The record is a 438-nucleotide sequence from Endozoicomonas elysicola, which matches "cspA thermoregulator" in Rfam. Rfam 15.1 lists 2,094 matches to the family in 1,285 species.
RNA sequence: AACGUUAAAAGUGUGAUUUAUUUUUUAUGCAAAGAUUUGAUGUUCCGGGUGUAGUAACUCGCCAUACUCUUCAUAAGCAAUAAUAAGCUUCUAGCUUUACCGCCUUAUUGUAAGGCACCUUUAUUAUUUAACUUCAGGAUAUGACUAUGUCUACUACUACCGGUACUGUUAAGUGGUUCAAUGACGAGAAAGGUUUUGGUUUUAUCGCUCAGGAUAAUGGCGGACCAGACGUAUUUGCUCACUUCCGUCAAAUCGCAGGUGAUGGCUUUAAAUCACUGGCUGAAGGCCAGCGCGUUGAGUUCACCAUCACUCAGGGUCAGAAAGGCCCACAGGCUGAAGAUAUUCGACCACUGUAAUGGUCGGGCUACAAUAUUGUAGUCUCUAACCUCACCUCAGGUGAGGCAAAGAAGGGCAGUACUUUCAGGUGCUGCCUUUUUU
Numbered sequence: 001a002a003c004g005u006u007a008a009a010a011g012u013g014u015g016a017u018u019u020a021u022u023u024u025u026u027a028u029g030c031a032a033a034g035a036u037u038u039g040a041u042g043u044u045c046c047g048g049g050u051g052u053a054g055u056a057a058c059u060c061g062c063c064a065u066a067c068u069c070u071u072c073a074u075a076a077g078c079a080a081u082a083a084u085a086a087g088c089u090u091c092u093a094g095c096u097u098u099a100c101c102g103c104c105u106u107a108u109u110g111u112a113a114g115g116c117a118c119c120u121u122u123a124u125u126a127u128u129u130a131a132c133u134u135c136a137g138g139a140u141a142u143g144a145c146u147a148u149g150u151c152u153a154c155u156a157c158u159a160c161c162g163g164u165a166c167u168g169u170u171a172a173g174u175g176g177u178u179c180a181a182u183g184a185c186g187a188g189a190a191a192g193g194u195u196u197u198g199g200u201u202u203u204a205u206c207g208c209u210c211a212g213g214a215u216a217a218u219g220g221c222g223g224a225c226c227a228g229a230c231g232u233a234u235u236u237g238c239u240c241a242c243u244u245c246c247g248u249c250a251a252a253u254c255g256c257a258g259g260u261g262a263u264g265g266c267u268u269u270a271a272a273u274c275a276c277u278g279g280c281u282g283a284a285g286g287c288c289a290g291c292g293c294g295u296u297g298a299g300u301u302c303a304c305c306a307u308c309a310c311u312c313a314g315g316g317u318c319a320g321a322a323a324g325g326c327c328c329a330c331a332g333g334c335u336g337a338a339g340a341u342a343u344u345c346g347a348c349c350a351c352u353g354u355a356a357u358g359g360u361c362g363g364g365c366u367a368c369a370a371u372a373u374u375g376u377a378g379u380c381u382c383u384a385a386c387c388u389c390a391c392c393u394c395a396g397g398u399g400a401g402g403c404a405a406a407g408a409a410g411g412g413c414a415g416u417a418c419u420u421u422c423a424g425g426u427g428c429u430g431c432c433u434u435u436u437u438u
Stems, first nucleotide, its partner, number of pairs: 002019001004017004025212002029208002039202001042201001044199002046193001052190001058188004063183003066177003072149004078143001085134003102116005151163002155159001215309001217307004228236002239297001241295002245290001247288001248286002253279001256278003261274003314328003318325001329383001331381002334378002386402002389399004408435012

Rfam classes the family as an RNA thermoregulator. The match comes from Rfam's covariance-model search (78 bits). On this family, see Giuliodori et al., Mol Cell 2010: "The cspA mRNA is a thermosensor that modulates translation of the cold-shock protein CspA".